[Rfam]
RNA sequence: GACCACCAGGUGCCUGACCCCUGACACAGGACGGAAACGGGGAAACCAAUUCCAGUCGUACGCCGCGCGCGUAUCGACUUGGGGUGAAGCGAGAGCAGCGACCGCUGCGAUUCUCGCCGGGCACUUUCCCGCCCGAACCCGACAGCUCACCUCGUAGGCCUAGGGAAAGGUUCA
Numbered sequence: 001g002a003c004c005a006c007c008a009g010g011u012g013c014c015u016g017a018c019c020c021c022u023g024a025c026a027c028a029g030g031a032c033g034g035a036a037a038c039g040g041g042g043a044a045a046c047c048a049a050u051u052c053c054a055g056u057c058g059u060a061c062g063c064c065g066c067g068c069g070c071g072u073a074u075c076g077a078c079u080u081g082g083g084g085u086g087a088a089g090c091g092a093g094a095g096c097a098g099c100g101a102c103c104g105c106u107g108c109g110a111u112u113c114u115c116g117c118c119g120g121g122c123a124c125u126u127u128c129c130c131g132c133c134c135g136a137a138c139c140c141g142a143c144a145g146c147u148c149a150c151c152u153c154g155u156a157g158g159c160c161u162a163g164g165g166a167a168a169g170g171u172u173c174a
Stems, first nucleotide, its partner, number of pairs: 012159003020034001037155006047081002082140003090116006119134004
Shown here is a 174-nucleotide RNA sequence from Nostocoides japonicum, a member of the family "c-di-AMP riboswitch aptamer (ydaO/yuaA leader)". NCBI's taxonomy places the organism under Bacteria, Micrococcales, Intrasporangiaceae, Nostocoides, Nostocoides japonicum. From the family's description: This family represents a conserved RNA structure found upstream of the ydaO and yuaA genes in Bacillus subtilis and related genes in other bacteria.